Background
This 291-nucleotide RNA from Zostera marina belongs to the Rfam family "Plant signal recognition particle RNA". By type it is a non-coding RNA gene. A reference for the family is Wild et al. (2002), "Towards the structure of the mammalian signal recognition particle", Curr Opin Struct Biol.
RNA sequence: GCUGAGCUCGGUAACGUGGGCUAGCAUUAAGGUAUUUGAAUAAUUUGGUAUUGAAUUCUAGGUUGACAUUAUGAGCUAGCUUUGAUUUGCAUGCCCGUUUCCAAGUUGGGCAGUGUAUGCUAGGUUUCAGGCUAACGCUUGAAUAAUAUUCUCCCUAAACUUGAGGGUAAUGCGUGAGGCUGGUUUCACAGAGCAGCGAUUACCUCUCUCUCUCAACGGUGGAAGGAUUACAAGUCAUUUGCUCAUAUUGUCAAUUAGCCUUGGAAUCCACAAAAUUCAACAAAUAUUUUU
Numbered sequence: 001g002c003u004g005a006g007c008u009c010g011g012u013a014a015c016g017u018g019g020g021c022u023a024g025c026a027u028u029a030a031g032g033u034a035u036u037u038g039a040a041u042a043a044u045u046u047g048g049u050a051u052u053g054a055a056u057u058c059u060a061g062g063u064u065g066a067c068a069u070u071a072u073g074a075g076c077u078a079g080c081u082u083u084g085a086u087u088u089g090c091a092u093g094c095c096c097g098u099u100u101c102c103a104a105g106u107u108g109g110g111c112a113g114u115g116u117a118u119g120c121u122a123g124g125u126u127u128c129a130g131g132c133u134a135a136c137g138c139u140u141g142a143a144u145a146a147u148a149u150u151c152u153c154c155c156u157a158a159a160c161u162u163g164a165g166g167g168u169a170a171u172g173c174g175u176g177a178g179g180c181u182g183g184u185u186u187c188a189c190a191g192a193g194c195a196g197c198g199a200u201u202a203c204c205u206c207u208c209u210c211u212c213u214c215a216a217c218g219g220u221g222g223a224a225g226g227a228u229u230a231c232a233a234g235u236c237a238u239u240u241g242c243u244c245a246u247a248u249u250g251u252c253a254a255u256u257a258g259c260c261u262u263g264g265a266a267u268c269c270a271c272a273a274a275a276u277u278c279a280a281c282a283a284a285u286a287u288u289u290u291u
Base pairs, nucleotide, nucleotide: 001025002024003023004022006021007020008019009018010017029290030289031288032287033286034285035284036283037282038281042277044275045274046273048271049270053268055267056266057265058264059263060262061261062260064258065252066251067250068249070247071246072245073244074243075242077241078240087237089235090234092232093231095226096225099224100223101222102221103220105217106216107215108214109213110212113209115154117152119150121148122147126143127142128141129140130139131138132137163206164205165204166203173198174197175196180191181190182189
Dot-bracket structure: ((((.(((((......)))))))))...((((((((((...(.(((.((...(.((((((((.(((((.((((((.((........(.((.((.((..(((((.((((((..(.(.(.(.((...(((((((....)))))))...)).).).)........((((......(((....(((......)))....)))....))))..)..))))))..)))))))....)).)).)..)))))))).)))).....).))))))))).)).))).)...)))))))))).